[Rfam]
RNA sequence: UUUCAUACUUUUCUCCGAGUCCACAUGCCUGUUGUUCACAACUAUGGCAGUAGGACCGUCAGGGUACACUUGGAAACGGGUGUGCCUCCCAUUGCGGAAAGGAGAACCUACGACUGUAU
Numbered sequence: 001u002u003u004c005a006u007a008c009u010u011u012u013c014u015c016c017g018a019g020u021c022c023a024c025a026u027g028c029c030u031g032u033u034g035u036u037c038a039c040a041a042c043u044a045u046g047g048c049a050g051u052a053g054g055a056c057c058g059u060c061a062g063g064g065u066a067c068a069c070u071u072g073g074a075a076a077c078g079g080g081u082g083u084g085c086c087u088c089c090c091a092u093u094g095c096g097g098a099a100a101g102g103a104g105a106a107c108c109u110a111c112g113a114c115u116g117u118a119u
Base pairs, nucleotide, nucleotide: 003113004112006110011106012105013104014103015102016101019056020055021054022053026049027048028047029046034042035041036040062087063086064085065084066083067082068081069080070079071078072077088097089096
RNA: Molybdenum/Tungsten riboswitch aptamer (Moco RNA motif)